[Rfam]
RNA sequence: CGUUACGUUUUCUAGGGUUCCGCGAGAGUACAUCGGUCUGGUCCGAGAGAAAACGCACAGCGCUGCUGUGGCACGGAGGGAUAAAAGCCCGGGAGAU
Numbered sequence: 001c002g003u004u005a006c007g008u009u010u011u012c013u014a015g016g017g018u019u020c021c022g023c024g025a026g027a028g029u030a031c032a033u034c035g036g037u038c039u040g041g042u043c044c045g046a047g048a049g050a051a052a053a054c055g056c057a058c059a060g061c062g063c064u065g066c067u068g069u070g071g072c073a074c075g076g077a078g079g080g081a082u083a084a085a086a087g088c089c090c091g092g093g094a095g096a097u
Base pairs, nucleotide, nucleotide: 007054008053009052010051011050012049015044016043020041021040022038023035024034025033056070057069058068059067060066061065072092074095078090079089080088
This 97-nucleotide RNA sequence from Aneurinibacillus soli belongs to the Rfam family "Guanidine-I riboswitch aptamer".
A search with the family's covariance model found it, with a score of 80 bits.
Lineage of the source: Bacteria > Bacillota > Bacilli > Paenibacillaceae > Aneurinibacillus.
Gene Ontology term of the family: regulation of gene expression.
Pairs were carried over by alignment from the consensus structure.
On this family, see Barrick et al., Proc Natl Acad Sci U S A 2004: "New RNA motifs suggest an expanded scope for riboswitches in bacterial genetic control".